[Rfam]
RNA sequence: UGCUCAUAGAUAGAGAUCGUUCGUAUAUCCUCAUUGAUAUGGUUUGAGGGUUUCUACAAGAGACCGUAAAUCUCUGGCUACGAACAGGCUUGCUUUUUGG
Numbered sequence: 001u002g003c004u005c006a007u008a009g010a011u012a013g014a015g016a017u018c019g020u021u022c023g024u025a026u027a028u029c030c031u032c033a034u035u036g037a038u039a040u041g042g043u044u045u046g047a048g049g050g051u052u053u054c055u056a057c058a059a060g061a062g063a064c065c066g067u068a069a070a071u072c073u074c075u076g077g078c079u080a081c082g083a084a085c086a087g088g089c090u091u092g093c094u095u096u097u098u099g100g
Base pairs, nucleotide, nucleotide: 019085020084021083022082023081024080025079029049030048031047032046033045059075060074061073062072063071
RNA: Purine riboswitch aptamer
Organism: Paenibacillus albilobatus